[Rfam]
mir-4788 microRNA precursor family: an 80-nucleotide RNA sequence from Homo sapiens. The sequence is in the family's curated seed alignment. Lineage of the source: Eukaryota > Bilateria > Sarcopterygii > Haplorrhini > Homo. Rfam links the family to the GO terms RISC complex and miRNA-mediated post-transcriptional gene silencing.

RNA sequence: AAUGAAGGAUUACGGACCAGCUAAGGGAGGCAUUAGGAUCCUUAUUCUUGCCUCCCUUAGUUGGUCCCUAAUCCUUCGUU
Numbered sequence: 001a002a003u004g005a006a007g008g009a010u011u012a013c014g015g016a017c018c019a020g021c022u023a024a025g026g027g028a029g030g031c032a033u034u035a036g037g038a039u040c041c042u043u044a045u046u047c048u049u050g051c052c053u054c055c056c057u058u059a060g061u062u063g064g065u066c067c068c069u070a071a072u073c074c075u076u077c078g079u080u
Stems, first nucleotide, its partner, number of pairs: 001080012014067019035048004